[Rfam]
RNA sequence: UUUGUGAUUGACUCCUAUCAAAAGUGAAAGCACUAAUGUGGAGGUAUUUGGAUGGGAGGAAUUUGAGAGAGG
Numbered sequence: 001u002u003u004g005u006g007a008u009u010g011a012c013u014c015c016u017a018u019c020a021a022a023a024g025u026g027a028a029a030g031c032a033c034u035a036a037u038g039u040g041g042a043g044g045u046a047u048u049u050g051g052a053u054g055g056g057a058g059g060a061a062u063u064u065g066a067g068a069g070a071g072g
Base pairs, nucleotide, nucleotide: 006064007063009061012058013057014056015055016054017053018052019051022049023048024047025046026045031040032039033038
Record summary: The family of this 72-nucleotide RNA sequence from Nematostella vectensis is "mir-9465 microRNA precursor family". Lineage of the source: Eukaryota > Eumetazoa > Cnidaria > Actiniaria > Nematostella. The family's consensus secondary structure was predicted with RNAalifold. It is one of the family's seed sequences. Its family is annotated with RISC complex and miRNA-mediated post-transcriptional gene silencing in the Gene Ontology.